Shown here is a 69-nucleotide RNA from Actinophytocola algeriensis, a member of the family "ASpks TB sRNA". The family's consensus secondary structure is taken from published work.

Nucleotides: 069
Base pairs, nucleotide, nucleotide: 015025016024028065029064030063032059033058037054038053039052041050042049043048
Number, partner (000 for none) and nucleotide at each position: 001000c002000u003000u004000c005000a006000a007000c008000g009000a010000a011000c012000c013000c014000a015025g016024c017000a018000a019000c020000a021000c022000c023000g024016g025015c026000c027000g028065c029064g030063c031000g032059c033058g034000g035000u036000c037054c038053u039052g040000g041050c042049c043048g044000u045000a046000g047000g048043u049042g050041g051000c052039c053038a054037g055000c056000a057000a058033c059032g060000c061000c062000u063030g064029u065028g066000c067000c068000u069000c
Lineage of the source: Bacteria > Bacillati > Pseudonocardiales > Pseudonocardiaceae > Actinophytocola.
By type it is an antisense RNA.